RNA sequence: UCAUAGCCUCGAUUGCAGCGGCAUCCUUUUGUGAAGCAAAGCGGAACAAAAGAUACAGCGGAAAGCGGGAAAAAGC
Numbered sequence: 001u002c003a004u005a006g007c008c009u010c011g012a013u014u015g016c017a018g019c020g021g022c023a024u025c026c027u028u029u030u031g032u033g034a035a036g037c038a039a040a041g042c043g044g045a046a047c048a049a050a051a052g053a054u055a056c057a058g059c060g061g062a063a064a065g066c067g068g069g070a071a072a073a074a075g076c
Stems, first nucleotide, its partner, number of pairs: 009068003013064002018059002023054003028050005

The family of this 76-nucleotide RNA is "Flavo-1 RNA". The family's RNA type in Rfam is small RNA. Pairs were carried over by alignment from the consensus structure, which is taken from published work.